[Rfam]
RNA sequence: CCACAUUGUUGGCAAACUAUCCUAAAGGGUAGGACGCAAAGCUUCCGGUCUGUCGACGUCAGUCUAUGAUAGCGGGGUUACCGUC
Numbered sequence: 001c002c003a004c005a006u007u008g009u010u011g012g013c014a015a016a017c018u019a020u021c022c023u024a025a026a027g028g029g030u031a032g033g034a035c036g037c038a039a040a041g042c043u044u045c046c047g048g049u050c051u052g053u054c055g056a057c058g059u060c061a062g063u064c065u066a067u068g069a070u071a072g073c074g075g076g077g078u079u080a081c082c083g084u085c
Stems, first nucleotide, its partner, number of pairs: 012037002017032006040079004045075003048070003055064003